[Rfam]
RNA sequence: AUGGCGAAUGCCUUGGGAACUACAGUCAAUCCAUAGGUCGCGGGUUCAAAUCCCGCCCGGUUCGACAUGAUCGGCCGGUAGCUCAGCGGAUAGAGCGGUGGAAAAUGUUUCCAAAACACCUUGUCGCCAUGAC
Numbered sequence: 001a002u003g004g005c006g007a008a009u010g011c012c013u014u015g016g017g018a019a020c021u022a023c024a025g026u027c028a029a030u031c032c033a034u035a036g037g038u039c040g041c042g043g044g045u046u047c048a049a050a051u052c053c054c055g056c057c058c059g060g061u062u063c064g065a066c067a068u069g070a071u072c073g074g075c076c077g078g079u080a081g082c083u084c085a086g087c088g089g090a091u092a093g094a095g096c097g098g099u100g101g102a103a104a105a106u107g108u109u110u111c112c113a114a115a116a117c118a119c120c121u122u123g124u125c126g127c128c129a130u131g132a133c
Stems, first nucleotide, its partner, number of pairs: 002129006013114007023100001033099002040056005057078006081096004
A member of the RNA family "Y RNA-like" from Endobacterium cereale, 133 nucleotides long. Rfam describes the family as follows. In Deinococcus radiodurans Rsr is tethered via Y RNA to the exoribonuclease PNPase and channels single-stranded RNA into the PNPase cavity. A search with the family's covariance model found it, with a score of 72 bits.